[Rfam]
RNA sequence: AGGAGGUCUGAGAAAAUAAAGCAGUUCCAAGUACUGCAUUUAUUGGUUAUAACCUCCAAAAUCAAAUUGUGCAAAAGCAAGUCACAUUCCUUUAACUUACUAGAUAUAGGAAUAUCGUUGCUACUUGCACAUAUUUU
Number, nucleotide and partner (000 for none) at each position: 001a000002g057003g056004a055005g054006g053007u000008c000009u000010g000011a000012g000013a000014a000015a044016a043017u042018a041019a039020a000021g037022c036023a035024g034025u033026u000027c000028c000029a000030a000031g000032u000033a025034c024035u023036g022037c021038a000039u019040u000041u018042a017043u016044u015045g000046g000047u000048u000049a000050u000051a000052a000053c006054c005055u004056c003057c002058a000059a000060a000061a000062u000063c000064a000065a000066a000067u000068u000069g000070u000071g000072c000073a000074a000075a000076a000077g128078c127079a000080a000081g125082u000083c000084a122085c120086a119087u000088u000089c000090c000091u000092u000093u114094a000095a000096c109097u000098u000099a000100c000101u000102a000103g000104a000105u000106a000107u000108a000109g096110g000111a000112a000113u000114a093115u000116c000117g000118u000119u086120g085121c000122u084123a000124c000125u081126u000127g078128c077129a000130c000131a000132u000133a000134u000135u000136u000137u000

The record is a 137-nucleotide sequence from Thamnophis sirtalis, which matches "Small nucleolar RNA SNORA47" in Rfam. The family's RNA type in Rfam is H/ACA-box small nucleolar RNA. Taxonomically the source falls in Thamnophis (Eukaryota, Craniata, Euteleostomi, Toxicofera). Pairs were carried over by alignment from the consensus structure, which was predicted with WAR.